[Rfam]
RNA sequence: GUGCGGCCUCCGCCGAGUCCGGUGCCCCUCAGGGGCUGAUCCGGAGCCGGGGACCCAACCGACCACUGGGGUGAAUCGGCCGCCGUCCGCAAGGACAAAGGCCGUAGGGCAUGCCUUCCGGAUUCGACCGCCCGAACCCGACAGCUAACCCGGUAGGCGGAGUACGGAAGGAGCA
Dot-bracket structure: ..........((((...(((((..................)))))((((((....((.........))(((.....((((....................))))..((((...................))))...))).........)))))).))))................
Numbered sequence: 001g002u003g004c005g006g007c008c009u010c011c012g013c014c015g016a017g018u019c020c021g022g023u024g025c026c027c028c029u030c031a032g033g034g035g036c037u038g039a040u041c042c043g044g045a046g047c048c049g050g051g052g053a054c055c056c057a058a059c060c061g062a063c064c065a066c067u068g069g070g071g072u073g074a075a076u077c078g079g080c081c082g083c084c085g086u087c088c089g090c091a092a093g094g095a096c097a098a099a100g101g102c103c104g105u106a107g108g109g110c111a112u113g114c115c116u117u118c119c120g121g122a123u124u125c126g127a128c129c130g131c132c133c134g135a136a137c138c139c140g141a142c143a144g145c146u147a148a149c150c151c152g153g154u155a156g157g158c159g160g161a162g163u164a165c166g167g168a169a170g171g172a173g174c175a
Stems, first nucleotide, its partner, number of pairs: 011159004018045005046154006056068002069139003077104004107133004
Rfam assigns this 175-nucleotide sequence from Streptomyces sp. Ag109_O5-10 to the family "c-di-AMP riboswitch aptamer (ydaO/yuaA leader)". Taxonomically the source falls in Streptomyces (Bacteria, Bacillati, Actinomycetota, Kitasatosporales).